Small nucleolar RNA SNORD34: a 76-nucleotide RNA from Esox lucius.
The match comes from Rfam's covariance-model search (44 bits).
About the family: snoRNA U34 is found in intron 5 of the ribosomal protein L13a gene in humans.
By type it is a C/D-box small nucleolar RNA.
Its family is annotated with RNA processing and nucleolus in the Gene Ontology.
The source organism's lineage runs through Eukaryota, Eumetazoa, Bilateria, Deuterostomia and Esox.
RNA sequence: ACUGUCAAUGAUGCUUUUUUUUUACCUACAUUGCUUGAGUAACUACUAUGAUAACUCAACAUUAAUCUGAGACAGU
Dot-bracket structure: (.((((................................................................)))).)